[Rfam]
RNA sequence: CUAAAAAACAUGAUCGAGUGCAGCGCUGGUGAAAGAAUCCUGGCUAGUAUAGAGAAAUAUUGGCAAAGCACCGACAAAUAUUCAUCAACGCUGCACUCAAUGAUGUUUUUU
Numbered sequence: 001c002u003a004a005a006a007a008a009c010a011u012g013a014u015c016g017a018g019u020g021c022a023g024c025g026c027u028g029g030u031g032a033a034a035g036a037a038u039c040c041u042g043g044c045u046a047g048u049a050u051a052g053a054g055a056a057a058u059a060u061u062g063g064c065a066a067a068g069c070a071c072c073g074a075c076a077a078a079u080a081u082u083c084a085u086c087a088a089c090g091c092u093g094c095a096c097u098c099a100a101u102g103a104u105g106u107u108u109u110u111u
Stems, first nucleotide, its partner, number of pairs: 006108006013101002016098010027087002030084003

This 111-nucleotide RNA sequence from Citrus unshiu belongs to the Rfam family "MIR397 microRNA precursor family". Pairs were carried over by alignment from the consensus structure, which was predicted with WAR.